[Rfam]
This 219-nucleotide sequence from Oncorhynchus mykiss belongs to the Rfam family "Small nucleolar RNA SNORA53". Rfam 15.1 lists 1,090 matches to the family in 800 species. Rfam links the family to the GO terms nucleolus and RNA processing. Taxonomically the source falls in Oncorhynchus (Eukaryota, Metazoa, Euteleostomi, Osteoglossocephalai). It scores 67 bits against the family's covariance model. Rfam's curators write: The snoRNA ACA53 belongs to the H/ACA family of pseudouridylation guide snoRNAs.
RNA sequence: UGAACACUUAGAUCCACCUCUGGAGGGUGUGCCUGUACUGGUGGUGUUGUCUCCGAGUGCUGCAGCUUCAGCCCAGAGGCUCUCAGCAGCUUUCUGGCUGUGCAGUCGGAGGUGUUUUAGUCAUUGGUGUUGUAGAGCAGUCUACCUGCCUCCCCAGCCCUCCUUCUGUACUGGCAACUCUGUUGUCAACCAGUGCAGCUCGGCUGGGGGGUGGACAAC
Numbered sequence: 001u002g003a004a005c006a007c008u009u010a011g012a013u014c015c016a017c018c019u020c021u022g023g024a025g026g027g028u029g030u031g032c033c034u035g036u037a038c039u040g041g042u043g044g045u046g047u048u049g050u051c052u053c054c055g056a057g058u059g060c061u062g063c064a065g066c067u068u069c070a071g072c073c074c075a076g077a078g079g080c081u082c083u084c085a086g087c088a089g090c091u092u093u094c095u096g097g098c099u100g101u102g103c104a105g106u107c108g109g110a111g112g113u114g115u116u117u118u119a120g121u122c123a124u125u126g127g128u129g130u131u132g133u134a135g136a137g138c139a140g141u142c143u144a145c146c147u148g149c150c151u152c153c154c155c156a157g158c159c160c161u162c163c164u165u166c167u168g169u170a171c172u173g174g175c176a177a178c179u180c181u182g183u184u185g186u187c188a189a190c191c192a193g194u195g196c197a198g199c200u201c202g203g204c205u206g207g208g209g210g211g212u213g214g215a216c217a218a219c
Stems, first nucleotide, its partner, number of pairs: 001129002007120002010117002015114008023084005033076003038071003043066001045064002049060001051059001086101006146214005153207001156205004166198008174186003